The family of this 71-nucleotide RNA is "tRNA". Rfam classes the family as a transfer RNA.
RNA sequence: UAGAUUGAAGCCAGUAAUAGGGUAUUUAGCUGUUAACUAAAUUUUCGUAGGUUUAAUUCCUGCCAAUCUAG
Numbered sequence: 001u002a003g004a005u006u007g008a009a010g011c012c013a014g015u016a017a018u019a020g021g022g023u024a025u026u027u028a029g030c031u032g033u034u035a036a037c038u039a040a041a042u043u044u045u046c047g048u049a050g051g052u053u054u055a056a057u058u059c060c061u062g063c064c065a066a067u068c069u070a071g
Base pairs, nucleotide, nucleotide: 001070002069003068004067005066006065007064010023011022012021025041026040027039028038029037047063048062049061050060051059
Rfam's curators put it in the seed alignment.